Rfam assigns this 141-nucleotide RNA sequence from Syntrophomonas wolfei to the family "Molybdenum/Tungsten riboswitch aptamer (Moco RNA motif)". The family's consensus secondary structure is taken from published work. Its family is annotated with molybdenum ion binding, tungstate binding and regulation of gene expression in the Gene Ontology. Taxonomically the source falls in Syntrophomonas wolfei subsp. wolfei (Bacteria, Bacillati, Syntrophomonadaceae, Syntrophomonas wolfei).
RNA sequence: AAUAGUUAAUGUCUUCGAGCCUUUUAUCCUAUAGCUUUAAGCCACGGAUAAUUGGACGAAAGGAGCAUCAAACGCUCCCCAGGGUAUAGCUGUAAACGGCUGUGCCUCCCGUAUUUGGAAAGAAGAUAUGGAACAUCCUUU
Numbered sequence: 001a002a003u004a005g006u007u008a009a010u011g012u013c014u015u016c017g018a019g020c021c022u023u024u025u026a027u028c029c030u031a032u033a034g035c036u037u038u039a040a041g042c043c044a045c046g047g048a049u050a051a052u053u054g055g056a057c058g059a060a061a062g063g064a065g066c067a068u069c070a071a072a073c074g075c076u077c078c079c080c081a082g083g084g085u086a087u088a089g090c091u092g093u094a095a096a097c098g099g100c101u102g103u104g105c106c107u108c109c110c111g112u113a114u115u116u117g118g119a120a121a122g123a124a125g126a127u128a129u130g131g132a133a134c135a136u137c138c139u140u141u
Base pairs, nucleotide, nucleotide: 003135006132011127012126013125014124015123016122020055021054024051025050026049027048028047029046034042035041036040062078063077064076065075066074082107083106084105085104086103087102088101089100090099091098092097108118109117